[Rfam]
RNA sequence: UACUAUAUGUCGCUUAAUUCCUCAUUCCUGGGGAAGCGGGGGAACCAUAUUUUUGGGGUUAAUACGGUGUGCUUCACACUGUUAGGGUUAUACUUUUCAAUCCGAACCCGUCAGCUAACUUCGUAGGCGUAGAAAAGUUAAAUU
Numbered sequence: 001u002a003c004u005a006u007a008u009g010u011c012g013c014u015u016a017a018u019u020c021c022u023c024a025u026u027c028c029u030g031g032g033g034a035a036g037c038g039g040g041g042g043a044a045c046c047a048u049a050u051u052u053u054u055g056g057g058g059u060u061a062a063u064a065c066g067g068u069g070u071g072c073u074u075c076a077c078a079c080u081g082u083u084a085g086g087g088u089u090a091u092a093c094u095u096u097u098c099a100a101u102c103c104g105a106a107c108c109c110g111u112c113a114g115c116u117a118a119c120u121u122c123g124u125a126g127g128c129g130u131a132g133a134a135a136a137g138u139u140a141a142a143u144u
Base pairs, nucleotide, nucleotide: 011129012128013127014126018035019034020033021032022031023030036124037123038122039121040120041119046055047054056109057108058107064082065081066080067079085103086102087101088100
c-di-AMP riboswitch aptamer (ydaO/yuaA leader): a 144-nucleotide RNA sequence from Desulforamulus aquiferis. A search with the family's covariance model found it, with a score of 93 bits.